[Rfam]
RNA sequence: CGCUUAUCCAGAAAGAUGGAGGGAAUUGACCCGAUGAAAUCUUGGCAACCUGCAAAUGUAAGGUGCCGCAUUCAACCUCAAGAUUUGAGGAAAGAUAAGUC
Numbered sequence: 001c002g003c004u005u006a007u008c009c010a011g012a013a014a015g016a017u018g019g020a021g022g023g024a025a026u027u028g029a030c031c032c033g034a035u036g037a038a039a040u041c042u043u044g045g046c047a048a049c050c051u052g053c054a055a056a057u058g059u060a061a062g063g064u065g066c067c068g069c070a071u072u073c074a075a076c077c078u079c080a081a082g083a084u085u086u087g088a089g090g091a092a093a094g095a096u097a098a099g100u101c
Stems, first nucleotide, its partner, number of pairs: 002100007013043005021032003026075004044067004049063002051060003071093001076090006